[Rfam]
Rfam assigns this 139-nucleotide sequence from Paenibacillus zeisoli to the family "c-di-AMP riboswitch aptamer (ydaO/yuaA leader)". The source organism's lineage runs through Bacteria, Bacillati, Bacilli, Paenibacillaceae and Paenibacillus. Rfam describes the family as follows. This family represents a conserved RNA structure found upstream of the ydaO and yuaA genes in Bacillus subtilis and related genes in other bacteria.
Nucleotides: 139
Base pairs, nucleotide, nucleotide: 012123013122014121018035019034020033021032022031023030037118038117039116040115041114053104054103055102061082062081063080064079065078066077067076085098086097
Number, partner (000 for none) and nucleotide at each position: 001000c002000c003000a004000a005000c006000a007000a008000a009000a010000c011000a012123g013122c014121c015000g016000a017000a018035u019034u020033c021032c022031c023030a024000c025000g026000c027000a028000c029000c030023u031022g032021g033020g034019a035018a036000a037118c038117g039116g040115g041114g042000g043000a044000a045000c046000c047000a048000g049000u050000u051000a052000u053104g054103g055102g056000u057000g058000a059000a060000u061082u062081g063080a064079u065078c066077u067076u068000g069000c070000a071000u072000u073000a074000g075000a076067g077066g078065g079064g080063u081062c082061a083000u084000a085098g086097g087000g088000a089000a090000c091000c092000u093000u094000c095000a096000a097086c098085c099000g100000a101000a102055u103054c104053c105000u106000c107000a108000a109000g110000c111000u112000a113000a114041c115040c116039u117038c118037g119000c120000a121014g122013g123012c124000c125000u126000u127000g128000g129000a130000a131000g132000g133000a134000g135000u136000u137000u138000a139000a